[Rfam]
A member of the RNA family "Guanidine-II riboswitch aptamer (mini-ykkC)" from Methylorubrum extorquens, 50 nucleotides long.
Simpler in structure and has fewer highly conserved nucleotide positions than the ykkC-yxkD leader.
RNA sequence: CUGCCGGGACGGCCCGGCCGCGUCAGGGCUUUUGGACCGGGACGACCCGG
Numbered sequence: 001c002u003g004c005c006g007g008g009a010c011g012g013c014c015c016g017g018c019c020g021c022g023u024c025a026g027g028g029c030u031u032u033u034g035g036a037c038c039g040g041g042a043c044g045a046c047c048c049g050g
Stems, first nucleotide, its partner, number of pairs: 001020001003018006037050005